A member of the RNA family "atoC RNA" from a Geobacteraceae bacterium, 90 nucleotides long. The organism belongs to Geobacteraceae, within Bacteria. Pairs were carried over by alignment from the consensus structure, which is taken from published work.

RNA sequence: GAUAUACUUAAACAAAUGACUUUUUGCGAGAGUCUUUUAGACUCUCAUUCUGCCCCGGUGUCUGCCCCUCCUGGCCGCCGGGGUGUUUUU
Numbered sequence: 001g002a003u004a005u006a007c008u009u010a011a012a013c014a015a016a017u018g019a020c021u022u023u024u025u026g027c028g029a030g031a032g033u034c035u036u037u038u039a040g041a042c043u044c045u046c047a048u049u050c051u052g053c054c055c056c057g058g059u060g061u062c063u064g065c066c067c068c069u070c071c072u073g074g075c076c077g078c079c080g081g082g083g084u085g086u087u088u089u090u
Stems, first nucleotide, its partner, number of pairs: 028046007052084009062074002